Description: This 208-nucleotide RNA sequence from Peptostreptococcus stomatis belongs to the Rfam family "T-box leader". Pairs were carried over by alignment from the consensus structure, which is taken from published work. NCBI's taxonomy places the organism under Bacteria, Clostridia, Peptostreptococcales, Peptostreptococcus, Peptostreptococcus stomatis. A search with the family's covariance model found it, with a score of 123 bits. Uncharged tRNA acts as the effector for transcription antitermination of genes in the T-box leader family. Gene Ontology term of the family: tRNA binding.

RNA sequence: AUAGAGCCGAUGAUAAAGAGAGUAACUCAGAUGAAUUUUCAGCGAGUCGGAGUAUGGUGUGAGUCCGAUAUUGAAGUUUGAAGUGAAGAGAGCUUUUGAGGUUGUUACAGGAAAUAAUAGUAUUGUAGCAGGUUUCCCGCCUUAAGGGUUUGAGAGGAUAGUAUAUCUAUCAAUAGGAGUGGUAACGCGGAAGUUUUUCGUCUCUUGG
Numbered sequence: 001a002u003a004g005a006g007c008c009g010a011u012g013a014u015a016a017a018g019a020g021a022g023u024a025a026c027u028c029a030g031a032u033g034a035a036u037u038u039u040c041a042g043c044g045a046g047u048c049g050g051a052g053u054a055u056g057g058u059g060u061g062a063g064u065c066c067g068a069u070a071u072u073g074a075a076g077u078u079u080g081a082a083g084u085g086a087a088g089a090g091a092g093c094u095u096u097u098g099a100g101g102u103u104g105u106u107a108c109a110g111g112a113a114a115u116a117a118u119a120g121u122a123u124u125g126u127a128g129c130a131g132g133u134u135u136c137c138c139g140c141c142u143u144a145a146g147g148g149u150u151u152g153a154g155a156g157g158a159u160a161g162u163a164u165a166u167c168u169a170u171c172a173a174u175a176g177g178a179g180u181g182g183u184a185a186c187g188c189g190g191a192a193g194u195u196u197u198u199c200g201u202c203u204c205u206u207g208g
Stems, first nucleotide, its partner, number of pairs: 007101002015096004025084002027081004035072001037070001046069006104129007131141003157171005176205004187201005